[Rfam]
Shown here is a 126-nucleotide RNA sequence from Tachuris rubrigastra, a member of the family "Small nucleolar RNA SNORD22". It is annotated as a C/D-box small nucleolar RNA. Gene Ontology terms of the family: RNA processing and nucleolus. Lineage of the source: Eukaryota > Dipnotetrapodomorpha > Telluraves > Tyrannidae > Tachuris. Pairs were carried over by alignment from the consensus structure, which was predicted with PFOLD.
RNA sequence: CCCCCAUGAGGAAACUCCCCCAUGUCUGACCCCCCUGGUGGGCCCAGGACCUGCCAAGGUGGAACCCACUGGUGUCCCCAGAGGGGACACGAGGAGAACCAGUCCCGUGGGGACGGUCUGAGGGGG
Numbered sequence: 001c002c003c004c005c006a007u008g009a010g011g012a013a014a015c016u017c018c019c020c021c022a023u024g025u026c027u028g029a030c031c032c033c034c035c036u037g038g039u040g041g042g043c044c045c046a047g048g049a050c051c052u053g054c055c056a057a058g059g060u061g062g063a064a065c066c067c068a069c070u071g072g073u074g075u076c077c078c079c080a081g082a083g084g085g086g087a088c089a090c091g092a093g094g095a096g097a098a099c100c101a102g103u104c105c106c107g108u109g110g111g112g113a114c115g116g117u118c119u120g121a122g123g124g125g126g
Stems, first nucleotide, its partner, number of pairs: 001125004